[Rfam]
RNA sequence: GUGCUUGAACAUCAAGAGUAAGGAAAUGAUAAACUCAGACGUGACUGUUUGGGUGAAGUGACGAUGUCACGAUGAAUUUUUGGAAGGGUAGUGGUCUCCCUCGGCGGGUAGCCUACGUUUGCUAUCUGCCGGUAGUGCGAGAUCAUCCCU
Number, nucleotide and partner (000 for none) at each position: 001g000002u000003g000004c023005u022006u021007g000008a019009a000010c000011a000012u000013c000014a000015a000016g000017a000018g000019u008020a000021a006022g005023g004024a000025a000026a000027u000028g000029a000030u000031a000032a000033a054034c053035u052036c051037a050038g049039a048040c047041g000042u000043g000044a000045c000046u000047g040048u039049u038050u037051g036052g035053g034054u033055g000056a000057a000058g070059u069060g068061a067062c000063g000064a000065u000066g000067u061068c060069a059070c058071g000072a000073u000074g000075a000076a000077u000078u000079u000080u000081u000082g000083g000084a000085a150086g149087g148088g147089u000090a000091g000092u145093g144094g143095u142096c141097u140098c139099c000100c000101u134102c131103g130104g129105c128106g127107g000108g125109u124110a123111g122112c121113c000114u000115a000116c000117g000118u000119u000120u000121g112122c111123u110124a109125u108126c000127u106128g105129c104130c103131g102132g000133u000134a101135g000136u000137g000138c000139g098140a097141g096142a095143u094144c093145a092146u000147c088148c087149c086150u085
Rfam assigns this 150-nucleotide sequence from Trichuris suis to the family "U12 minor spliceosomal RNA". The source organism's lineage runs through Eukaryota, Ecdysozoa, Nematoda, Trichuridae and Trichuris. The family is grouped with related families in Rfam's "U2 clan". A search with the family's covariance model found it, with a score of 67 bits. For this family Rfam cites "The divergent U12-type spliceosome is required for pre-mRNA splicing and is essential for development in Drosophila" (Otake et al., Mol Cell, 2002). Rfam classes the family as a spliceosomal small nuclear RNA.